[Rfam]
RNA sequence: AACAUUCGAAUACGCAUACCGUAGACAGUAGGUGUCCGAGAGGACUUAAUUUCCUACCGAGGUGUUAUGAUAAAACGUUGAGGAAUGCGGCAAGCGAUGCUUGCCUGCGCUCGAUAACGAAAUCAUGGCCUUCGCUUCGUCUGCGAAGGCCUUUCUCAUUGCACCC
Number, nucleotide and partner (000 for none) at each position: 001a000002a000003c000004a000005u000006u000007c000008g000009a000010a000011u000012a000013c000014g000015c000016a000017u000018a000019c000020c000021g000022u000023a000024g000025a000026c000027a000028g057029u056030a055031g054032g053033u000034g045035u044036c043037c000038g000039a000040g000041a000042g000043g036044a035045c034046u000047u000048a000049a000050u000051u000052u000053c032054c031055u030056a029057c028058c000059g000060a000061g000062g000063u000064g000065u000066u000067a000068u000069g000070a000071u000072a000073a000074a000075a000076c000077g000078u000079u000080g000081a000082g000083g000084a000085a000086u000087g000088c000089g000090g000091c000092a000093a000094g000095c000096g000097a000098u000099g000100c000101u000102u000103g000104c000105c000106u000107g000108c000109g000110c000111u000112c000113g000114a000115u000116a000117a000118c000119g000120a000121a000122a000123u000124c000125a000126u000127g151128g150129c149130c148131u147132u146133c145134g144135c143136u000137u000138c000139g000140u000141c000142u000143g135144c134145g133146a132147a131148g130149g129150c128151c127152u000153u000154u000155c000156u000157c000158a000159u000160u000161g000162c000163a000164c000165c000166c000
The family of this 166-nucleotide RNA sequence from Paenibacillus nanensis is "Ribosomal protein L10 leader". The organism belongs to Paenibacillus, within Bacteria. The base pairs follow the family's consensus structure, which was predicted with CMfinder. It is annotated as a cis-regulatory leader.